[Rfam]
RNA sequence: CUUCCCAUUUUAGUGCCACUUUUUUCGAUUUACAGAAUAAGUGGUUAUGCCAAUGGGAUAGAGAAACAGUUGCCAUUGUCUGAAGGAGGAAAUGGAUGUUUUGUCCUAAAUGAAAUGGCAAAACAUAGGACA
Numbered sequence: 001c002u003u004c005c006c007a008u009u010u011u012a013g014u015g016c017c018a019c020u021u022u023u024u025u026c027g028a029u030u031u032a033c034a035g036a037a038u039a040a041g042u043g044g045u046u047a048u049g050c051c052a053a054u055g056g057g058a059u060a061g062a063g064a065a066a067c068a069g070u071u072g073c074c075a076u077u078g079u080c081u082g083a084a085g086g087a088g089g090a091a092a093u094g095g096a097u098g099u100u101u102u103g104u105c106c107u108a109a110a111u112g113a114a115a116u117g118g119c120a121a122a123a124c125a126u127a128g129g130a131c132a
Stems, first nucleotide, its partner, number of pairs: 004057004016044004072119004087107004
RNA: Small nucleolar RNA SNORA29
Organism: Geotrypetes seraphini